The family of this 85-nucleotide sequence is "RAGATH-27 RNA". The family's RNA type in Rfam is small RNA.
[Rfam]
RNA sequence: UUCACUGUUUACCGAAAACUUUAAACUACAACUCAUCAGUCUUUUGCAGAUAUAGACUUAUGUAAAGCUGAAAAAGAAAUCUGCA
Number, nucleotide and partner (000 for none) at each position: 001u000002u000003c000004a000005c000006u000007g000008u000009u000010u000011a000012c000013c000014g000015a000016a000017a000018a000019c000020u000021u000022u000023a000024a000025a000026c000027u000028a000029c000030a000031a000032c000033u000034c062035a061036u060037c000038a058039g057040u056041c055042u054043u000044u000045u085046g084047c083048a082049g081050a080051u079052a000053u000054a042055g041056a040057c039058u038059u000060a036061u035062g034063u000064a000065a000066a000067g000068c000069u000070g000071a000072a000073a000074a000075a000076g000077a000078a000079a051080u050081c049082u048083g047084c046085a045